[Rfam]
RNA: c-di-GMP-I-GGC riboswitch aptamer
RNA sequence: UGUGACAAAGGCAAACCACUCGAGAGGGUGGGACGCAAAGCCAAGGGACCUAACGAGGGACACAUGUUCCAGGGUCAGCCUAGCCGCCACAA
Numbered sequence: 001u002g003u004g005a006c007a008a009a010g011g012c013a014a015a016c017c018a019c020u021c022g023a024g025a026g027g028g029u030g031g032g033a034c035g036c037a038a039a040g041c042c043a044a045g046g047g048a049c050c051u052a053a054c055g056a057g058g059g060a061c062a063c064a065u066g067u068u069c070c071a072g073g074g075u076c077a078g079c080c081u082a083g084c085c086g087c088c089a090c091a092a
Base pairs, nucleotide, nucleotide: 001092003089004088011036012035016031017030018029019028020027021026034078040084041083044081045080046079047076048075049074050073051072